[Rfam]
Nucleotides: 058
Base pairs, nucleotide, nucleotide: 022038023037024036025035026034027033
Number, partner (000 for none) and nucleotide at each position: 001000c002000a003000u004000u005000a006000u007000a008000u009000u010000g011000a012000c013000a014000g015000c016000c017000a018000u019000g020000a021000a022038a023037u024036c025035g026034c027033u028000a029000a030000c031000g032000c033027g034026g035025c036024g037023a038022u039000u040000a041000a042000u043000g044000c045000a046000a047000a048000a049000c050000u051000u052000u053000a054000a055000a056000a057000g058000c
Record summary: This 58-nucleotide RNA sequence from Snodgrassella alvi belongs to the Rfam family "porB RNA". The family's consensus secondary structure is taken from published work. It scores 38 bits against the family's covariance model.